[Rfam]
RNA sequence: CGCAGUGACACGGGGUGCUUUCCCCUCCCGGGGAAGGCUGAGAUGACACCCGUCGAACCUGAUCCAGUCAACACUGGCGAAGGGAUGUCCGGUCCUCGCACG
Numbered sequence: 001c002g003c004a005g006u007g008a009c010a011c012g013g014g015g016u017g018c019u020u021u022c023c024c025c026u027c028c029c030g031g032g033g034a035a036g037g038c039u040g041a042g043a044u045g046a047c048a049c050c051c052g053u054c055g056a057a058c059c060u061g062a063u064c065c066a067g068u069c070a071a072c073a074c075u076g077g078c079g080a081a082g083g084g085a086u087g088u089c090c091g092g093u094c095c096u097c098g099c100a101c102g
Stems, first nucleotide, its partner, number of pairs: 007089004011052004016046001017038008058083003064077004

This 102-nucleotide sequence from Corynebacterium frankenforstense belongs to the Rfam family "TPP riboswitch aptamer (THI element)".
Rfam's curators write: Vitamin B(1) in its active form thiamin pyrophosphate (TPP) is an essential coenzyme that is synthesised by coupling of pyrimidine and thiazole moieties in bacteria. The previously detected thiamin-regulatory element, thi box was extended, resulting in a new, highly conserved RNA secondary structure, the THI element, which is widely distributed in eubacteria and also occurs in some archaea.
The family has 115 seed sequences and 16,130 matches in Rfam 15.1.